[Rfam]
A member of the RNA family "FMN riboswitch aptamer (RFN element)" from Luteimonas salinisoli, 216 nucleotides long. The organism belongs to Luteimonas, within Bacteria. The family's consensus secondary structure is taken from published work.

RNA sequence: AGACGUCUUCAGGGCGGGGUGGAACUCCCCACCGGCGGUAGGCGUGGCGCUUCUGCGAAGCCGCCGCGCGAGCCCGCGAGCGCUUGCGGCGGUUCCUCGGGGGCGUCGCAAGGCCAGCAGAUCCGGUCCGAUGCCGGAGCCGACGGUCCGGGAAUCGAUGCGCGGCGCGCCAUGCCGGGCAUCCGUUCCCCACAGUCCGGAUGAAAGAAGACGGCA
Number, nucleotide and partner (000 for none) at each position: 001a000002g000003a000004c213005g212006u211007c210008u209009u208010c207011a000012g000013g000014g000015c000016g000017g029018g028019g027020u000021g000022g000023a000024a000025c000026u000027c019028c018029c017030c000031a000032c000033c142034g141035g077036c076037g075038g074039u000040a000041g000042g000043c000044g000045u000046g000047g000048c000049g000050c000051u000052u000053c000054u000055g000056c000057g000058a000059a000060g000061c000062c000063g000064c000065c000066g000067c000068g000069c000070g000071a000072g140073c139074c038075c037076g036077c035078g000079a000080g118081c117082g000083c000084u000085u000086g000087c000088g000089g000090c000091g000092g000093u000094u000095c000096c000097u000098c000099g000100g000101g000102g000103g000104c000105g000106u000107c000108g000109c000110a000111a000112g000113g000114c000115c000116a000117g081118c080119a000120g000121a000122u138123c137124c136125g135126g134127u000128c000129c000130g000131a000132u000133g000134c126135c125136g124137g123138a122139g073140c072141c034142g033143a000144c199145g198146g197147u000148c000149c000150g000151g000152g000153a000154a000155u000156c000157g000158a000159u000160g000161c000162g000163c000164g000165g000166c000167g000168c000169g000170c000171c000172a000173u000174g000175c000176c000177g000178g000179g000180c000181a000182u000183c000184c000185g000186u000187u000188c000189c000190c000191c000192a000193c000194a000195g000196u000197c146198c145199g144200g000201a000202u000203g000204a000205a000206a000207g010208a009209a008210g007211a006212c005213g004214g000215c000216a000